[Rfam]
RNA sequence: UCAACCAGAAGAGGCGCUCUUCUUAGGUAUCCCGUUUAGCUAACAUGCUUAAAAUGCAUUCGGGAAAGGGAAUGAAGAGCCGAGGCAGUUAAAAACAGCAUUAAUUUAACUGUCGGCUAUGGAGGCUGAAUCCUUCAGGCUGUCACACUUAAGGUGAAGUGCUUCUGGCGGA
Numbered sequence: 001u002c003a004a005c006c007a008g009a010a011g012a013g014g015c016g017c018u019c020u021u022c023u024u025a026g027g028u029a030u031c032c033c034g035u036u037u038a039g040c041u042a043a044c045a046u047g048c049u050u051a052a053a054a055u056g057c058a059u060u061c062g063g064g065a066a067a068g069g070g071a072a073u074g075a076a077g078a079g080c081c082g083a084g085g086c087a088g089u090u091a092a093a094a095a096c097a098g099c100a101u102u103a104a105u106u107u108a109a110c111u112g113u114c115g116g117c118u119a120u121g122g123a124g125g126c127u128g129a130a131u132c133c134u135u136c137a138g139g140c141u142g143u144c145a146c147a148c149u150u151a152a153g154g155u156g157a158a159g160u161g162c163u164u165c166u167g168g169c170g171g172a
Base pairs, nucleotide, nucleotide: 006167007166008165009164010163011162016080017079018078019077020076021075022074024072030065031064032063033062034061037058084114085113086112087111088110089109090108091107092106093105115141116140117139118138120137121136122135123134124133125132143157144156145155146154
RNA: Lysine riboswitch aptamer
Organism: Ruminobacter amylophilus